[Rfam]
This 277-nucleotide sequence from Medicago truncatula belongs to the Rfam family "MIR2655 microRNA precursor family". The base pairs follow the family's consensus structure, which was predicted with RNAalifold. Rfam links the family to the GO terms RISC complex and miRNA-mediated post-transcriptional gene silencing.
RNA sequence: CCCUUAACUAUUAAAAGUUUCGUUUUGGUCCCUUAACUUACUUUUUGAUUUCGUUUUGGUCCCUUAACUAUUAAAAGUUUCGUUUUUGUCCUUUAACUUAUUUUUUUGUUUCGUUUUGGUCCUUUAACUCUUCCUCCGCAACCACUUUGGUCCUUUACGUUAGGAUGAAUGUAUUAGAGUUAAGGACCAAAACGAAAUCAAAAAAUAAGUUAAUGAACCAAAACGAAACCAAAAAAUAAGUUAAGGGACCAAAACGAAACUUUUAAUAGUUAAGGGA
Numbered sequence: 001c002c003c004u005u006a007a008c009u010a011u012u013a014a015a016a017g018u019u020u021c022g023u024u025u026u027g028g029u030c031c032c033u034u035a036a037c038u039u040a041c042u043u044u045u046u047g048a049u050u051u052c053g054u055u056u057u058g059g060u061c062c063c064u065u066a067a068c069u070a071u072u073a074a075a076a077g078u079u080u081c082g083u084u085u086u087u088g089u090c091c092u093u094u095a096a097c098u099u100a101u102u103u104u105u106u107u108g109u110u111u112c113g114u115u116u117u118g119g120u121c122c123u124u125u126a127a128c129u130c131u132u133c134c135u136c137c138g139c140a141a142c143c144a145c146u147u148u149g150g151u152c153c154u155u156u157a158c159g160u161u162a163g164g165a166u167g168a169a170u171g172u173a174u175u176a177g178a179g180u181u182a183a184g185g186a187c188c189a190a191a192a193c194g195a196a197a198u199c200a201a202a203a204a205a206u207a208a209g210u211u212a213a214u215g216a217a218c219c220a221a222a223a224c225g226a227a228a229c230c231a232a233a234a235a236a237u238a239a240g241u242u243a244a245g246g247g248a249c250c251a252a253a254a255c256g257a258a259a260c261u262u263u264u265a266a267u268a269g270u271u272a273a274g275g276g277a
Stems, first nucleotide, its partner, number of pairs: 002275007023254003027250003031246010042235002045232003